[Rfam]
RNA: Mammalian CPEB3 ribozyme
RNA sequence: UUGCAAGCUCAAGGCCUUAGCAGAAGCACUCCCAGUGCAGUCCUGUCAUAUUCGAAUGAAUUUGCAAAUACUGCU
Numbered sequence: 001u002u003g004c005a006a007g008c009u010c011a012a013g014g015c016c017u018u019a020g021c022a023g024a025a026g027c028a029c030u031c032c033c034a035g036u037g038c039a040g041u042c043c044u045g046u047c048a049u050a051u052u053c054g055a056a057u058g059a060a061u062u063u064g065c066a067a068a069u070a071c072u073g074c075u
Base pairs, nucleotide, nucleotide: 013042014041015040019075020074021073022072023071025069026038027037028036047064048063050061051060052059053058